[Rfam]
RNA sequence: UGAACAAAUUAAACUCAUAAGUCAAGGCCCCACUCUAUUGGUCAUUCAUGUAGGGCAAAGGAAAUACCUUUUAAAACUCAAGCAAACUGGGUGUUUCUCUUGUAUCCUGUCAGAGGAAACAAAA
Numbered sequence: 001u002g003a004a005c006a007a008a009u010u011a012a013a014c015u016c017a018u019a020a021g022u023c024a025a026g027g028c029c030c031c032a033c034u035c036u037a038u039u040g041g042u043c044a045u046u047c048a049u050g051u052a053g054g055g056c057a058a059a060g061g062a063a064a065u066a067c068c069u070u071u072u073a074a075a076a077c078u079c080a081a082g083c084a085a086a087c088u089g090g091g092u093g094u095u096u097c098u099c100u101u102g103u104a105u106c107c108u109g110u111c112a113g114a115g116g117a118a119a120c121a122a123a124a
Base pairs, nucleotide, nucleotide: 027056028055029054030053039048040047041046067116068115069114070113071112079102080100082098084096085095086094087093